Rfam assigns this 103-nucleotide sequence from Anaeromicrobium sediminis to the family "TPP riboswitch aptamer (THI element)".
[Rfam]
RNA sequence: UGUAUUCACUGGGGGUGCCUAAAGGCUGAGAGCAGACUUGAUUCUGUAACCCUUUGAACCUGAUCUAGUUAGAACUAGCGAAGGGAAGUGUAGUGAUUUUUUA
Dot-bracket structure: ......((((((((..(((....)))......((((......))))...)))).....(((...((((......))))...)))..)))).............
Pairs were carried over by alignment from the consensus structure, which is taken from published work.